ArcZ RNA: a 108-nucleotide sequence from Enterobacteriaceae bacterium strain FGI 57.
A search with the family's covariance model found it, with a score of 87 bits.
The family's consensus secondary structure was predicted with PFOLD.
NCBI's taxonomy places the organism under Bacteria, Pseudomonadati, Gammaproteobacteria, Enterobacterales, Enterobacteriaceae.
Rfam's curators write: This RNA was discovered in E. coli during a large scale screen.
It is annotated as a small RNA.
On this family, see Argaman et al., Curr Biol 2001: "Novel small RNA-encoding genes in the intergenic regions of Escherichia coli".
RNA sequence: GUGCAAUCGUAUUCAUCAGGUUGUGUCUUACUAAAUUCCUAUUACAUCUUAUGGCGCAGCCACGAUUUCCCUGGUGUUGGCGCAGUGUUCGCGCACCCCGGUUUAGCC
Numbered sequence: 001g002u003g004c005a006a007u008c009g010u011a012u013u014c015a016u017c018a019g020g021u022u023g024u025g026u027c028u029u030a031c032u033a034a035a036u037u038c039c040u041a042u043u044a045c046a047u048c049u050u051a052u053g054g055c056g057c058a059g060c061c062a063c064g065a066u067u068u069c070c071c072u073g074g075u076g077u078u079g080g081c082g083c084a085g086u087g088u089u090c091g092c093g094c095a096c097c098c099c100g101g102u103u104u105a106g107c108c
Stems, first nucleotide, its partner, number of pairs: 020060008073097003080094004